[Rfam]
RNA sequence: GUCGUCGCGAGGCAGGGUCCGAAGGCAGUGUGGAGCAAACCCGCGACCCGAUGGACAAGAACCGGAUACGAGGCGGUACAGGUGGGACGAGCGGGCGGAUGACCGCGAAGUCCAGGGCCAUCAAGGGCCUGUGCCGUAGAUCCGGCGGGGGUGCGGGGAAGGCGGUCGGAC
Numbered sequence: 001g002u003c004g005u006c007g008c009g010a011g012g013c014a015g016g017g018u019c020c021g022a023a024g025g026c027a028g029u030g031u032g033g034a035g036c037a038a039a040c041c042c043g044c045g046a047c048c049c050g051a052u053g054g055a056c057a058a059g060a061a062c063c064g065g066a067u068a069c070g071a072g073g074c075g076g077u078a079c080a081g082g083u084g085g086g087a088c089g090a091g092c093g094g095g096c097g098g099a100u101g102a103c104c105g106c107g108a109a110g111u112c113c114a115g116g117g118c119c120a121u122c123a124a125g126g127g128c129c130u131g132u133g134c135c136g137u138a139g140a141u142c143c144g145g146c147g148g149g150g151g152u153g154c155g156g157g158g159a160a161g162g163c164g165g166u167c168g169g170a171c
Stems, first nucleotide, its partner, number of pairs: 002015001004013003028171002031168002035163002040157006047149004062145006073137003077133007085113004091106004
A member of the RNA family "Group II catalytic intron D1-D4-3", 171 nucleotides long.
From the family's description: Group II introns are found in rRNA, tRNA and mRNA of organelles in fungi, plants and protists, and also in mRNA in bacteria.